[Rfam]
RNA sequence: AUUCUAAGAUUUGUAUAAUUCAACAGAAUUGAAAAAAUGUGUUAUUUUUUUGCUGUGUCU
Dot-bracket structure: ((.(.(..((((((........)))).)))....(((((...))))).......).))..
Numbered sequence: 001a002u003u004c005u006a007a008g009a010u011u012u013g014u015a016u017a018a019u020u021c022a023a024c025a026g027a028a029u030u031g032a033a034a035a036a037a038u039g040u041g042u043u044a045u046u047u048u049u050u051u052g053c054u055g056u057g058u059c060u
Stems, first nucleotide, its partner, number of pairs: 001058002004055001006030001009029002011026004035047005

Small nucleolar RNA SNORD77: a 60-nucleotide sequence from Heliothis virescens. The source organism's lineage runs through Eukaryota, Eumetazoa, Eumetabola, Ditrysia and Heliothis. The family is grouped with related families in Rfam's "SNORD77 clan". U77 belongs to the C/D family of snoRNAs. It is predicted to guide 2'O-ribose methylation of large 28S rRNA subunit at position A1521. A search with the family's covariance model found it, with a score of 37 bits. It is annotated as a C/D-box small nucleolar RNA. The family has 21 seed sequences and 396 matches in Rfam 15.1.